[Rfam]
RNA sequence: UUGCAUUCCUAAACCUUCUUGGUAGCUUCGCUGAAAACGCUUCCAAGAUAUCAGUGAAUGCUAUAGAAAUCGCAGGGGAGUCCAAAAGGCUGCCCUUCUCCUGUGGAUCAGUCUUAUUUCAUACCUGCGACAUAU
Numbered sequence: 001u002u003g004c005a006u007u008c009c010u011a012a013a014c015c016u017u018c019u020u021g022g023u024a025g026c027u028u029c030g031c032u033g034a035a036a037a038c039g040c041u042u043c044c045a046a047g048a049u050a051u052c053a054g055u056g057a058a059u060g061c062u063a064u065a066g067a068a069a070u071c072g073c074a075g076g077g078g079a080g081u082c083c084a085a086a087a088g089g090c091u092g093c094c095c096u097u098c099u100c101c102u103g104u105g106g107a108u109c110a111g112u113c114u115u116a117u118u119u120c121a122u123a124c125c126u127g128c129g130a131c132a133u134a135u
Stems, first nucleotide, its partner, number of pairs: 003061004008054001011051001017048006024041003065135001067133001070130007086115007095106001098103001

The record is a 135-nucleotide sequence from Oryctolagus cuniculus, which matches "Small nucleolar RNA SNORA14" in Rfam. From the family's description: ACA14 is a member of the H/ACA class of snoRNA that guide the sites of modification of uridines to pseudouridines. Taxonomically the source falls in Oryctolagus (Eukaryota, Deuterostomia, Euteleostomi, Boreoeutheria). The sequence is in the family's curated seed alignment. The family's consensus secondary structure was predicted with RNAfold.